The record is a 163-nucleotide sequence from Eptatretus burgeri, which matches "U1 spliceosomal RNA" in Rfam.
A search with the family's covariance model found it, with a score of 75 bits.

[Rfam]
RNA sequence: AUACUUACCUGAUAGGAGAGAUACCGCGAUCAGUUCGUUAAGGCGGUAUUCUCAGGGCGAGGCCUACCCAUUGCACUACAGGAGGGAGGUUGAGCCUUGCGAUUUCCCCAAAUGUGGGAAAGUCGACCUGAAAUUUGUAGGAUGCAGGAGACGAUAGACCGGC
Dot-bracket structure: ...........(..((((((..(((((...............))))).)))))((((...(((.(.(((...........)).)..).)))...)))).((((((.((.......)).))).))).).)....................(.((......)).)
Numbered sequence: 001a002u003a004c005u006u007a008c009c010u011g012a013u014a015g016g017a018g019a020g021a022u023a024c025c026g027c028g029a030u031c032a033g034u035u036c037g038u039u040a041a042g043g044c045g046g047u048a049u050u051c052u053c054a055g056g057g058c059g060a061g062g063c064c065u066a067c068c069c070a071u072u073g074c075a076c077u078a079c080a081g082g083a084g085g086g087a088g089g090u091u092g093a094g095c096c097u098u099g100c101g102a103u104u105u106c107c108c109c110a111a112a113u114g115u116g117g118g119a120a121a122g123u124c125g126a127c128c129u130g131a132a133a134u135u136u137g138u139a140g141g142a143u144g145c146a147g148g149a150g151a152c153g154a155u156a157g158a159c160c161g162g163c
Stems, first nucleotide, its partner, number of pairs: 012129001015127001016053005023047005054098004061091003065087001067084001068082002100125003103121003107117002150163001152161002
The source organism's lineage runs through Eukaryota, Chordata, Craniata, Myxinidae and Eptatretus.
Its Rfam clan is "U1 clan".
It is annotated as a spliceosomal small nuclear RNA.
U1 is a small nuclear RNA (snRNA) component of the spliceosome (involved in pre-mRNA splicing).